[Rfam]
RNA sequence: UCGCAUCCGCCAACCGGUGCAGCCGUGUCGCGGAAGGUUUUCAACCCACUUGUGUUUCCUGCAGGGAAACCGAAGGCGAGCG
Numbered sequence: 001u002c003g004c005a006u007c008c009g010c011c012a013a014c015c016g017g018u019g020c021a022g023c024c025g026u027g028u029c030g031c032g033g034a035a036g037g038u039u040u041u042c043a044a045c046c047c048a049c050u051u052g053u054g055u056u057u058c059c060u061g062c063a064g065g066g067a068a069a070c071c072g073a074a075g076g077c078g079a080g081c082g
Stems, first nucleotide, its partner, number of pairs: 002082003006034005015025004036046004047078001049076002054070007
RNA: SucA RNA motif